[Rfam]
RNA sequence: GGUCAUCUGGCAGUGUAGUUAGUUGAUUACAAUCCUUAUAGUAAUCACUAACCUCACUACCAGGUGAAG
Numbered sequence: 001g002g003u004c005a006u007c008u009g010g011c012a013g014u015g016u017a018g019u020u021a022g023u024u025g026a027u028u029a030c031a032a033u034c035c036u037u038a039u040a041g042u043a044a045u046c047a048c049u050a051a052c053c054u055c056a057c058u059a060c061c062a063g064g065u066g067a068a069g
Stems, first nucleotide, its partner, number of pairs: 003067004009061002012058004018052005024047007

Background: This 69-nucleotide sequence from Sinocyclocheilus anshuiensis belongs to the Rfam family "mir-34 microRNA precursor family". A reference for the family is Dostie et al. (2003), "Numerous microRNPs in neuronal cells containing novel microRNAs", RNA. The family is grouped with related families in Rfam's "mir-34 clan". Rfam links the family to the GO terms RISC complex and miRNA-mediated post-transcriptional gene silencing. Taxonomically the source falls in Sinocyclocheilus (Eukaryota, Actinopteri, Ostariophysi, Cypriniformes). The family has 113 seed sequences and 2,256 matches in Rfam 15.1. It scores 56 bits against the family's covariance model.